[Rfam]
RNA sequence: AUCCAAGCCAUUGUUGACAUUCAUUCAUCCAGCUUGAAGAUAGAGAGAGAGAGAAGGAGAUAGAAGGGGAGGUGUUACUACCGUAGUGUAACACCUCCCCCUCUAUCUCCAGGUUCACAUCUAAGUUUGUCCAUGAUCCUCACCUGCAAAAGCUCUGCUGGAUUAAGAGUUUAUGUGAGGAGAGUGGCAAACCGGCAAGUCAAAAAACGGCGAUGGGAGACUUGGGUUACGAGUCUC
Numbered sequence: 001a002u003c004c005a006a007g008c009c010a011u012u013g014u015u016g017a018c019a020u021u022c023a024u025u026c027a028u029c030c031a032g033c034u035u036g037a038a039g040a041u042a043g044a045g046a047g048a049g050a051g052a053g054a055a056g057g058a059g060a061u062a063g064a065a066g067g068g069g070a071g072g073u074g075u076u077a078c079u080a081c082c083g084u085a086g087u088g089u090a091a092c093a094c095c096u097c098c099c100c101c102u103c104u105a106u107c108u109c110c111a112g113g114u115u116c117a118c119a120u121c122u123a124a125g126u127u128u129g130u131c132c133a134u135g136a137u138c139c140u141c142a143c144c145u146g147c148a149a150a151a152g153c154u155c156u157g158c159u160g161g162a163u164u165a166a167g168a169g170u171u172u173a174u175g176u177g178a179g180g181a182g183a184g185u186g187g188c189a190a191a192c193c194g195g196c197a198a199g200u201c202a203a204a205a206a207a208c209g210g211c212g213a214u215g216g217g218a219g220a221c222u223u224g225g226g227u228u229a230c231g232a233g234u235c236u237c
Stems, first nucleotide, its partner, number of pairs: 058108007125192006139184003219235005
Rfam assigns this 237-nucleotide RNA sequence from Dioscorea zingiberensis to the family "Early nodulin 40". A search with the family's covariance model found it, with a score of 45 bits. It is annotated as a non-coding RNA gene. On this family, see Gultyaev and Roussis, Nucleic Acids Res 2007: "Identification of conserved secondary structures and expansion segments in enod40 RNAs reveals new enod40 homologues in plants".